RNA sequence: AUCUUUGCGCUUGGGGCAAUGACGCAGCUAGUGAGGUAAUACCGAGGCGCGUCAAUUGCUGGUUGAAAACUAUUUCCAAACCCCCUCUUUGGCCCUCCCUUUGUGGAGGGCCACUGAGAAUUUCUGAAAGGGCUCCCUCUCCUUCGGGUGAGGGUAAAGCC
Numbered sequence: 001a002u003c004u005u006u007g008c009g010c011u012u013g014g015g016g017c018a019a020u021g022a023c024g025c026a027g028c029u030a031g032u033g034a035g036g037u038a039a040u041a042c043c044g045a046g047g048c049g050c051g052u053c054a055a056u057u058g059c060u061g062g063u064u065g066a067a068a069a070c071u072a073u074u075u076c077c078a079a080a081c082c083c084c085c086u087c088u089u090u091g092g093c094c095c096u097c098c099c100u101u102u103g104u105g106g107a108g109g110g111c112c113a114c115u116g117a118g119a120a121u122u123u124c125u126g127a128a129a130g131g132g133c134u135c136c137c138u139c140u141c142c143u144u145c146g147g148g149u150g151a152g153g154g155u156a157a158a159g160c161c
Stems, first nucleotide, its partner, number of pairs: 021053005027048003035043003085118003090113009131161004
The record is a 161-nucleotide sequence from Triticum aestivum, which matches "U4 spliceosomal RNA" in Rfam. The base pairs follow the family's consensus structure, which is taken from published work. From the family's description: U4 small nuclear RNA (U4 snRNA) is a component of the major U2-dependent spliceosome. Rfam classes the family as a spliceosomal small nuclear RNA. The match comes from Rfam's covariance-model search (112 bits). Taxonomically the source falls in Triticum (Eukaryota, Viridiplantae, Euphyllophyta, Pooideae).